[Rfam]
RNA sequence: GUUCUGUCACAACGGCUUCCUGACGUGGCAGGUUUAAUUUAAUGGAGCA
Numbered sequence: 001g002u003u004c005u006g007u008c009a010c011a012a013c014g015g016c017u018u019c020c021u022g023a024c025g026u027g028g029c030a031g032g033u034u035u036a037a038u039u040u041a042a043u044g045g046a047g048c049a
Base pairs, nucleotide, nucleotide: 004031005030006029007028008027009026010025013022014021015048016047017046019045020044
Rfam assigns this 49-nucleotide sequence from Loktanella sp. S4079 to the family "SAM/SAH riboswitch aptamer".
Pairs were carried over by alignment from the consensus structure, which is taken from published work.
The organism belongs to Loktanella, within Bacteria.